The record is a 100-nucleotide RNA from Chromobacterium violaceum, which matches "Bacterial small signal recognition particle RNA" in Rfam. For this family Rfam cites "SRPDB: Signal Recognition Particle Database" (Rosenblad et al., Nucleic Acids Res, 2003). From the family's description: The signal recognition particle (SRP) is a universally conserved ribonucleoprotein involved in the co-translational targeting of proteins to membranes. It is one of the family's seed sequences. The base pairs follow the family's consensus structure, which is taken from published work.
[Rfam]
RNA sequence: GGCGGGCCUCCCCGCAUUGCACGGUAGCGAACCUGGUCAGGUCCGGAAGGAAGCAGCCACAGUUAUUCAGUGCAAGUGCCGGGGGUCGGGCUCGCCACCC
Numbered sequence: 001g002g003c004g005g006g007c008c009u010c011c012c013c014g015c016a017u018u019g020c021a022c023g024g025u026a027g028c029g030a031a032c033c034u035g036g037u038c039a040g041g042u043c044c045g046g047a048a049g050g051a052a053g054c055a056g057c058c059a060c061a062g063u064u065a066u067u068c069a070g071u072g073c074a075a076g077u078g079c080c081g082g083g084g085g086u087c088g089g090g091c092u093c094g095c096c097a098c099c100c
Stems, first nucleotide, its partner, number of pairs: 004093005009085006015076001017075006023067006034059004042051003